[Rfam]
RNA: c-di-AMP riboswitch aptamer (ydaO/yuaA leader)
Organism: Paenibacillus graminis
RNA sequence: GUUCUCAAAUGGCUGAAUUCCAGUAAUGGGAACGGGGGAACCAAUGGUGAAUGCGGCUUUUGCUCAGAUAGCUUCCGCUCACCUGGGGUGAAUCCUUGCAGCGUGCUGAUAAGCCGCUUCUUACAAGGUAGGGCAAUCUCGCUGCCCGAAUCCGUCAGCUAACCCCGUAAGCCUCGAAGAGAGAGGAU
Number, nucleotide and partner (000 for none) at each position: 001g000002u000003u000004c000005u000006c000007a000008a000009a000010u000011g173012g172013c171014u170015g000016a000017a000018u031019u030020c029021c000022a000023g000024u000025a000026a000027u000028g000029g020030g019031a018032a168033c167034g166035g165036g164037g163038g000039a000040a000041c000042c085043a084044a000045u000046g000047g000048u000049g000050a000051a000052u000053g000054c000055g000056g000057c000058u000059u000060u000061u000062g000063c000064u000065c000066a000067g000068a000069u000070a000071g000072c000073u000074u000075c000076c000077g000078c000079u000080c000081a000082c000083c000084u043085g042086g153087g152088g151089u000090g000091a000092a000093u000094c128095c127096u126097u125098g000099c000100a000101g000102c000103g000104u000105g000106c000107u000108g000109a000110u000111a000112a000113g000114c000115c000116g000117c000118u000119u000120c000121u000122u000123a000124c000125a097126a096127g095128g094129u000130a000131g147132g146133g145134c144135a000136a000137u000138c000139u000140c000141g000142c000143u000144g134145c133146c132147c131148g000149a000150a000151u088152c087153c086154g000155u000156c000157a000158g000159c000160u000161a000162a000163c037164c036165c035166c034167g033168u032169a000170a014171g013172c012173c011174u000175c000176g000177a000178a000179g000180a000181g000182a000183g000184a000185g000186g000187a000188u000